[Rfam]
RNA: Small nucleolar RNA U83B
Organism: Ochotona princeps
RNA sequence: GCUGUUCAGUGAUGAGGCCUGGAAUGAGCGCUGGGCACGGCGCCCGAACUCCCCUGUGGAACCAUUCCCUGUUGCCUUCCUUCUGAGAACGGC
Numbered sequence: 001g002c003u004g005u006u007c008a009g010u011g012a013u014g015a016g017g018c019c020u021g022g023a024a025u026g027a028g029c030g031c032u033g034g035g036c037a038c039g040g041c042g043c044c045c046g047a048a049c050u051c052c053c054c055u056g057u058g059g060a061a062c063c064a065u066u067c068c069c070u071g072u073u074g075c076c077u078u079c080c081u082u083c084u085g086a087g088a089a090c091g092g093c
Stems, first nucleotide, its partner, number of pairs: 001093005